Shown here is a 108-nucleotide RNA sequence from Brachybacterium alimentarium, a member of the family "TPP riboswitch aptamer (THI element)". The source organism's lineage runs through Bacteria, Actinomycetota, Micrococcales, Dermabacteraceae and Brachybacterium.
RNA sequence: AUCCACUGACAGGGGAGCACCGCCGUGGUGCUGAGAGUGCGCGAUUCAGCGCAGACCCUCGAACCUGAUCCGGCUUGCACCGGCGUAGGGAGUCGGGAUUUCCGCAGG
Numbered sequence: 001a002u003c004c005a006c007u008g009a010c011a012g013g014g015g016a017g018c019a020c021c022g023c024c025g026u027g028g029u030g031c032u033g034a035g036a037g038u039g040c041g042c043g044a045u046u047c048a049g050c051g052c053a054g055a056c057c058c059u060c061g062a063a064c065c066u067g068a069u070c071c072g073g074c075u076u077g078c079a080c081c082g083g084c085g086u087a088g089g090g091a092g093u094c095g096g097g098a099u100u101u102c103c104g105c106a107g108g
Stems, first nucleotide, its partner, number of pairs: 006096005011059004017031005038053005064089004070083004